This 97-nucleotide RNA sequence from Acer yangbiense belongs to the Rfam family "MIR477 microRNA precursor family".
A reference for the family is Lu et al. (2005), "Novel and mechanical stress-responsive MicroRNAs in Populus trichocarpa that are absent from Arabidopsis", Plant Cell.
Pairs were carried over by alignment from the consensus structure, which was predicted with WAR.

[Rfam]
RNA sequence: AGAGUUUCCAAUUUCCCUCAAAGGCUUCCAGUAUUCAAGCUGUUAAUUACUUGAUGCUGUAGGAAUGCUGGAAGUCUUUGUGGGGAACUGAAUGCUU
Numbered sequence: 001a002g003a004g005u006u007u008c009c010a011a012u013u014u015c016c017c018u019c020a021a022a023g024g025c026u027u028c029c030a031g032u033a034u035u036c037a038a039g040c041u042g043u044u045a046a047u048u049a050c051u052u053g054a055u056g057c058u059g060u061a062g063g064a065a066u067g068c069u070g071g072a073a074g075u076c077u078u079u080g081u082g083g084g085g086a087a088c089u090g091a092a093u094g095c096u097u
Base pairs, nucleotide, nucleotide: 003096004095005094009090010089012087013086014085015084016083017082019080021078022077023076024075025074026073027072028071029070030069031068032067033066